[Rfam]
RNA sequence: GGCACUGUGGCGGAGUGGUUACGCAGCGGUCUGCAAAACCGUGUACACCGGUUCAAUUCCGGUCGGUGCCU
Numbered sequence: 001g002g003c004a005c006u007g008u009g010g011c012g013g014a015g016u017g018g019u020u021a022c023g024c025a026g027c028g029g030u031c032u033g034c035a036a037a038a039c040c041g042u043g044u045a046c047a048c049c050g051g052u053u054c055a056a057u058u059c060c061g062g063u064c065g066g067u068g069c070c071u
Stems, first nucleotide, its partner, number of pairs: 001070007010024003026042005047063005
Dot-bracket structure: (((((((..(((.........))).(((((.......)))))....(((((.......)))))))))))).
This 71-nucleotide RNA from TM7 phylum sp. oral taxon 351 belongs to the Rfam family "tRNA".
The match comes from Rfam's covariance-model search (63 bits).